Annotation
c-di-GMP-I riboswitch aptamer: an 86-nucleotide RNA from Paenibacillus sabuli. From the family's description: GEMM was predicted in a large-scale screen for bacterial structured RNA regulatory elements. Pairs were carried over by alignment from the consensus structure, which is taken from published work. Lineage of the source: Bacteria > Bacillati > Bacilli > Paenibacillaceae > Paenibacillus. It scores 82 bits against the family's covariance model.
[Rfam]
RNA sequence: UGCACGAAAUGGCAAACCUGCUGAAAAGCAGGGACGCAAAGCUAUGGGCCUAAAGAAGGGGUUUCUACGGUCGCCAGGCUGCCGAA
Numbered sequence: 001u002g003c004a005c006g007a008a009a010u011g012g013c014a015a016a017c018c019u020g021c022u023g024a025a026a027a028g029c030a031g032g033g034a035c036g037c038a039a040a041g042c043u044a045u046g047g048g049c050c051u052a053a054a055g056a057a058g059g060g061g062u063u064u065c066u067a068c069g070g071u072c073g074c075c076a077g078g079c080u081g082c083c084g085a086a
Stems, first nucleotide, its partner, number of pairs: 012037002017032006040080004045076003048071003055065004